ZMP/ZTP riboswitch aptamer (pfl RNA motif): an 83-nucleotide RNA sequence. The base pairs follow the family's consensus structure, which is taken from published work.
[Rfam]
RNA sequence: AAGGUCUUCGGUGACUGACGGAAUUGUGGGACUAACCACAAGGGAGCCGGAGAUUUGAUGAGUCGACCGUCUGGGCAGUAUUU
Number, nucleotide and partner (000 for none) at each position: 001a000002a000003g055004g054005u053006c052007u051008u050009c049010g048011g047012u046013g000014a000015c043016u042017g071018a070019c069020g068021g067022a000023a000024u000025u000026g039027u038028g037029g036030g000031a000032c000033u000034a000035a000036c029037c028038a027039c026040a000041a000042g016043g015044g000045a000046g012047c011048c010049g009050g008051a007052g006053a005054u004055u003056u000057g000058a000059u000060g000061a000062g076063u075064c074065g000066a000067c021068c020069g019070u018071c017072u000073g000074g064075g063076c062077a000078g000079u000080a000081u000082u000083u000